[Rfam]
RNA sequence: UUCCUUAGAUAGGAAGUGUCGUAUGACAUUUCAAACAGCA
Numbered sequence: 001u002u003c004c005u006u007a008g009a010u011a012g013g014a015a016g017u018g019u020c021g022u023a024u025g026a027c028a029u030u031u032c033a034a035a036c037a038g039c040a
Stems, first nucleotide, its partner, number of pairs: 013032006

A member of the RNA family "Small nucleolar RNA U49" from Actinidia chinensis, 40 nucleotides long. A search with the family's covariance model found it, with a score of 36 bits. The family has 5 seed sequences and 340 matches in Rfam 15.1.